[Rfam]
RNA sequence: AUUUAUGGAAGUUCGGCUAAAGGCGUCACGUCCUGUGACAACACCGAACUGACCCACGUCGUGUGGG
Number, nucleotide and partner (000 for none) at each position: 001a000002u000003u000004u000005a000006u000007g000008g000009a000010a000011g049012u048013u047014c046015g045016g044017c000018u000019a000020a000021a000022g000023g000024c000025g039026u038027c037028a036029c035030g000031u000032c000033c000034u000035g029036u028037g027038a026039c025040a000041a000042c000043a000044c016045c015046g014047a013048a012049c011050u000051g000052a000053c067054c066055c065056a064057c063058g000059u000060c000061g000062u000063g057064u056065g055066g054067g053

Bacillaceae-1 RNA: a 67-nucleotide RNA sequence from Alteribacillus iranensis. The source organism's lineage runs through Bacteria, Bacillati, Bacillota, Bacillaceae and Alteribacillus. A search with the family's covariance model found it, with a score of 73 bits.